Overview
Rfam assigns this 144-nucleotide RNA sequence from Lachnospiraceae bacterium MD335 to the family "Group II catalytic intron D1-D4-7". The base pairs follow the family's consensus structure. Rfam describes the family as follows. Group II introns are found in rRNA, tRNA and mRNA of organelles in fungi, plants and protists, and also in mRNA in bacteria.
RNA sequence: CCAGCCAUUCCGUUGGCUGAAGCCGUCACCAUUGGCUCUGUCAGUAAUGGCAUUGUUCAAAAGCUGGUGAUAAAAGUAACCCUACUGGGAGGUUUAAACCGUGAGGUUAAAACCGAAACUGCAAGCUACAAUGCGGUUAGGGUG
Numbered sequence: 001c002c003a004g005c006c007a008u009u010c011c012g013u014u015g016g017c018u019g020a021a022g023c024c025g026u027c028a029c030c031a032u033u034g035g036c037u038c039u040g041u042c043a044g045u046a047a048u049g050g051c052a053u054u055g056u057u058c059a060a061a062a063g064c065u066g067g068u069g070a071u072a073a074a075a076g077u078a079a080c081c082c083u084a085c086u087g088g089g090a091g092g093u094u095u096a097a098a099c100c101g102u103g104a105g106g107u108u109a110a111a112a113c114c115g116a117a118a119c120u121g122c123a124a125g126c127u128a129c130a131a132u133g134c135g136g137u138u139a140g141g142g143u144g
Stems, first nucleotide, its partner, number of pairs: 002019006027069005032060003035056002039052005091114004099106002118137006